[Rfam]
Pyrrolysine insertion sequence 1: a 100-nucleotide RNA sequence from Methanosarcina barkeri.
It is annotated as a cis-regulatory element.
Taxonomically the source falls in Methanosarcina barkeri (Archaea, Methanobacteriota, Methanosarcinales, Methanosarcinaceae).
RNA sequence: UAGGGCCCAGAGACCUCACUGUCCGCCCAGGGAAACAUUUCCGCUGACUGUGCCGGCGGAAUGACCUGUACGGACAGUCACGAGGUCUCGCAACUCUGUG
Numbered sequence: 001u002a003g004g005g006c007c008c009a010g011a012g013a014c015c016u017c018a019c020u021g022u023c024c025g026c027c028c029a030g031g032g033a034a035a036c037a038u039u040u041c042c043g044c045u046g047a048c049u050g051u052g053c054c055g056g057c058g059g060a061a062u063g064a065c066c067u068g069u070a071c072g073g074a075c076a077g078u079c080a081c082g083a084g085g086u087c088u089c090g091c092a093a094c095u096c097u098g099u100g
Stems, first nucleotide, its partner, number of pairs: 010089008040060007
The family's consensus secondary structure was predicted with WAR.